[Rfam]
RNA: Glycine riboswitch aptamer
Organism: Hydrogenophaga crassostreae
RNA sequence: UUCUGCGUGUCAGGAGAGAAAUCUGGUUCAGGACAUGGCCAGAUUCGCCGAAGGCGCAGAGAAUGACAGCGGGCUGCUCGGUUCGCCCGCUUCUUGAACGCUCAGGCAAAAGGACUGGCAACCACCG
Dot-bracket structure: .......((((((......((((((((..........)))))))).(((((..(((...((((...........................))))....))))).))).......)))))).......